[Rfam]
RNA sequence: GGUCAUGAGUGCCAGCAGAUAGCCCCGGCUUGCUGGCCGGCAACCCUCCAACCGCGGUGGGGUGCCCCGGGUGAAGACCAGGCCCUGCACGCAGUGUGCAGGACAAACGCGGUGC
Numbered sequence: 001g002g003u004c005a006u007g008a009g010u011g012c013c014a015g016c017a018g019a020u021a022g023c024c025c026c027g028g029c030u031u032g033c034u035g036g037c038c039g040g041c042a043a044c045c046c047u048c049c050a051a052c053c054g055c056g057g058u059g060g061g062g063u064g065c066c067c068c069g070g071g072u073g074a075a076g077a078c079c080a081g082g083c084c085c086u087g088c089a090c091g092c093a094g095u096g097u098g099c100a101g102g103a104c105a106a107a108c109g110c111g112g113u114g115c
Base pairs, nucleotide, nucleotide: 001079002078003077004076009038011037012036013035014034015033016032021030022029039066040065041064044062045061046060048057049056082104084102085101086100087099088098089097090096091095

The record is a 115-nucleotide RNA from Neomicrococcus aestuarii, which matches "SAM (S-adenosyl methionine) riboswitch aptamer" in Rfam. Gene Ontology terms of the family: regulation of gene expression and S-adenosylmethionine metabolic process. The base pairs follow the family's consensus structure, which is taken from published work. The match comes from Rfam's covariance-model search (114 bits).